RNA sequence: UCCACUGAUGGCAUGAAAUCCUUGAGACCCGAAUUCUCUAUUUUGAUGACAAUUACAAACAUUCUUAUACGAUGAC
Numbered sequence: 001u002c003c004a005c006u007g008a009u010g011g012c013a014u015g016a017a018a019u020c021c022u023u024g025a026g027a028c029c030c031g032a033a034u035u036c037u038c039u040a041u042u043u044u045g046a047u048g049a050c051a052a053u054u055a056c057a058a059a060c061a062u063u064c065u066u067a068u069a070c071g072a073u074g075a076c
Base pairs, nucleotide, nucleotide: 001075002074032044033041034040